U11 spliceosomal RNA: a 128-nucleotide sequence from Dreissena polymorpha. Clan: U1 clan. Gene Ontology terms of the family: mRNA 5'-splice site recognition, pre-mRNA 5'-splice site binding and U11 snRNP. The family's RNA type in Rfam is spliceosomal small nuclear RNA. The base pairs follow the family's consensus structure, which is taken from published work.
[Rfam]
RNA sequence: GAAAAGUGCCUUCGACGCAAUGUCACUCAGCGUAUUCAAGGACGUUGGGCGGACUCGAUAGCAAGAGAUUUCGGAGGCGAAAUUUCUGUGAAAGAGGCAGUUAGUGCUUAAUUAAGCCUAGAGUCCUU
Numbered sequence: 001g002a003a004a005a006g007u008g009c010c011u012u013c014g015a016c017g018c019a020a021u022g023u024c025a026c027u028c029a030g031c032g033u034a035u036u037c038a039a040g041g042a043c044g045u046u047g048g049g050c051g052g053a054c055u056c057g058a059u060a061g062c063a064a065g066a067g068a069u070u071u072c073g074g075a076g077g078c079g080a081a082a083u084u085u086c087u088g089u090g091a092a093a094g095a096g097g098c099a100g101u102u103a104g105u106g107c108u109u110a111a112u113u114a115a116g117c118c119u120a121g122a123g124u125c126c127u128u
Base pairs, nucleotide, nucleotide: 008078009077010076011075012074014024015023016022017021026049027048028047029046030045031044032043033042035040050073051072052071053070055068056067096125097124098123101121102120103119104118106117107116108115109114